RNA sequence: AAAAAUCUUCAGGGCAGGGUGAAAUUCCCGACCGGCGGUAUAGCCCGCGAGCCGAAAGGCAUGACUCGGUGAAAUUCCGAGGCCGACAGUAUAGUCUGGAUGGGAGAAGAUUUAU
Numbered sequence: 001a002a003a004a005a006u007c008u009u010c011a012g013g014g015c016a017g018g019g020u021g022a023a024a025u026u027c028c029c030g031a032c033c034g035g036c037g038g039u040a041u042a043g044c045c046c047g048c049g050a051g052c053c054g055a056a057a058g059g060c061a062u063g064a065c066u067c068g069g070u071g072a073a074a075u076u077c078c079g080a081g082g083c084c085g086a087c088a089g090u091a092u093a094g095u096c097u098g099g100a101u102g103g104g105a106g107a108a109g110a111u112u113u114a115u
Stems, first nucleotide, its partner, number of pairs: 003113008017029003031095002033085002035048004043083002053059001065081005087098003

This 115-nucleotide sequence from Thermobrachium celere belongs to the Rfam family "FMN riboswitch aptamer (RFN element)". Rfam's curators write: The RFN element is a highly conserved domain that is found frequently in the 5'-untranslated regions of prokaryotic mRNAs that encode for flavin mononucleotide (FMN) biosynthesis and transport proteins. Its family is annotated with FMN binding in the Gene Ontology. A search with the family's covariance model found it, with a score of 125 bits. The base pairs follow the family's consensus structure, which is taken from published work.